[Rfam]
Nucleotides: 377
Base pairs, nucleotide, nucleotide: 002372004370005369006368007367008366009365011362013331014330015329016328017327018326019325021034022033023032024031025030039360040359041358043357044356045355046354047353048217049216050215051214055266056265057264058263060213061212062211063210064209065079066078067077068076069075080097081095082094083093084092098208099207103206104205105202106201120147121146122143123142124141125140126139127138128137129136155173156172157171158170159169160168175197176195177194178193179192181190182189183188221288222287223286224285232278233277234276235275236274258270259269260268261267295314296313297312298311299310300309301308302307
Number, partner (000 for none) and nucleotide at each position: 001000a002372u003000u004370u005369u006368c007367c008366g009365c010000g011362g012000a013331c014330c015329a016328c017327a018326u019325c020000g021034c022033c023032a024031g025030c026000u027000u028000c029000g030025g031024u032023u033022g034021g035000a036000g037000g038000a039360a040359a041358g042000u043357c044356c045355g046354g047353a048217c049216a050215a051214c052000a053000c054000a055266g056265a057264g058263c059000g060213c061212c062211a063210c064209g065079c066078u067077u068076c069075c070000u071000a072000a073000c074000g075069g076068g077067a078066a079065g080097g081095u082094u083093c084092c085000g086000u087000u088000a089000u090000g091000c092084g093083g094082a095081a096000a097080c098208a099207g100000c101000a102000a103206g104205u105202g106201c107000a108000g109000c110000a111000g112000a113000g114000a115000g116000u117000a118000g119000a120147c121146c122143g123142c124141c125140u126139c127138g128137a129136c130000c131000c132000u133000c134000g135000u136129g137128u138127u139126g140125g141124g142123g143122u144000a145000a146121g147120g148000g149000u150000g151000a152000a153000a154000g155173g156172g157171u158170g159169a160168g161000g162000u163000a164000a165000g166000a167000g168160c169159u170158c171157a172156c173155c174000a175197g176195u177194a178193c179192g180000g181190a182189u183188g184000g185000c186000g187000a188183c189182a190181u191000g192179c193178g194177u195176a196000g197175c198000u199000a200000g201106g202105u203000a204000a205104a206103c207099c208098u209064c210063g211062u212061g213060g214051g215050u216049u217048g218000a219000a220000a221288u222287g223286u224285c225000a226000u227000g228000u229000a230000u231000a232278c233277c234276g235275a236274c237000a238000g239000u240000c241000c242000c243000g244000c245000a246000a247000u248000g249000g250000c251000g252000g253000g254000a255000u256000a257000a258270g259269g260268g261267c262000u263058g264057c265056u266055c267261g268260c269259c270258u271000a272000a273000u274236g275235u276234c277233g278232g279000g280000g281000g282000g283000u284000a285224g286223g287222c288221a289000g290000a291000u292000u293000g294000a295314g296313g297312g298311u299310g300309c301308g302307g303000g304000u305000g306000a307302c308301c309300g310299u311298a312297c313296u314295u315000c316000u317000a318000g319000a320000u321000a322000a323000a324000u325019g326018a327017u328016g329015u330014g331013g332000a333000u334000u335000g336000c337000u338000u339000c340000g341000g342000c343000a344000a345000u346000a347000a348000c349000a350000g351000a352000a353047u354046c355045c356044g357043g358041c359040u360039u361000a362011u363000g364000a365009g366008c367007g368006g369005a370004a371000u372002a373000c374000u375000u376000c377000a
Shown here is a 377-nucleotide RNA from Phaeocystidibacter marisrubri, a member of the family "Bacterial RNase P class A".